[Rfam]
Nucleotides: 101
Base pairs, nucleotide, nucleotide: 036095037094038093039092040091041090053081054080055079056078057077058076
Number, partner (000 for none) and nucleotide at each position: 001000g002000u003000g004000c005000u006000u007000u008000a009000g010000g011000g012000a013000u014000g015000a016000a017000u018000a019000a020000g021000u022000c023000c024000c025000u026000c027000a028000u029000a030000c031000g032000a033000a034000u035000a036095u037094c038093c039092a040091u041090c042000u043000a044000a045000a046000u047000c048000a049000c050000u051000u052000u053081g054080u055079c056078a057077g058076u059000u060000g061000c062000c063000u064000u065000u066000u067000u068000g069000g070000u071000g072000g073000c074000g075000c076058a077057c078056u079055g080054a081053u082000c083000a084000u085000u086000g087000u088000a089000a090041g091040a092039u093038g094037g095036a096000a097000a098000a099000u100000g101000g
The record is a 101-nucleotide RNA sequence from Theobroma cacao, which matches "Small nucleolar RNA snoR99" in Rfam.
Gene Ontology terms of the family: RNA processing and nucleolus.
The literature on the family includes a 2002 paper in Curr Biol by Marker et al., "Experimental RNomics: identification of 140 candidates for small non-messenger RNAs in the plant Arabidopsis thaliana".
The family's RNA type in Rfam is H/ACA-box small nucleolar RNA.
It scores 79 bits against the family's covariance model.
The family has 9 seed sequences and 733 matches in Rfam 15.1.